[Rfam]
RNA sequence: CACGAUGUUGCACAGGCUGCGGUGUUGGGCCUGAAAAUAGUAAAUAAAAGAACCUGCCUCACCAGCAGGUUUUUUU
Numbered sequence: 001c002a003c004g005a006u007g008u009u010g011c012a013c014a015g016g017c018u019g020c021g022g023u024g025u026u027g028g029g030c031c032u033g034a035a036a037a038u039a040g041u042a043a044a045u046a047a048a049a050g051a052a053c054c055u056g057c058c059u060c061a062c063c064a065g066c067a068g069g070u071u072u073u074u075u076u
Base pairs, nucleotide, nucleotide: 007023008022009021010020011019046076047075048074049073050072051071052070053069054068055067056066057065